[Rfam]
RNA sequence: GCCAAAUGAUGUGAAGUAGAUAGCAGUAGCACUCUGCAAAGAUGACCUUCAUCUAUCACCCCAUACUGAUGGCU
Numbered sequence: 001g002c003c004a005a006a007u008g009a010u011g012u013g014a015a016g017u018a019g020a021u022a023g024c025a026g027u028a029g030c031a032c033u034c035u036g037c038a039a040a041g042a043u044g045a046c047c048u049u050c051a052u053c054u055a056u057c058a059c060c061c062c063a064u065a066c067u068g069a070u071g072g073c074u
Base pairs, nucleotide, nucleotide: 001073002072003071004070029037030036031035